[Rfam]
RNA: U1A polyadenylation inhibition element (PIE)
RNA sequence: UCAUAAAGCAUUGCACCCAGAGUCUGGUUUACCAGACAUUGUACCUGGAGCUUUUCUUUUUUUUUUUUUUUUAUAA
Numbered sequence: 001u002c003a004u005a006a007a008g009c010a011u012u013g014c015a016c017c018c019a020g021a022g023u024c025u026g027g028u029u030u031a032c033c034a035g036a037c038a039u040u041g042u043a044c045c046u047g048g049a050g051c052u053u054u055u056c057u058u059u060u061u062u063u064u065u066u067u068u069u070u071u072u073a074u075a076a
Stems, first nucleotide, its partner, number of pairs: 005054005017048004022037005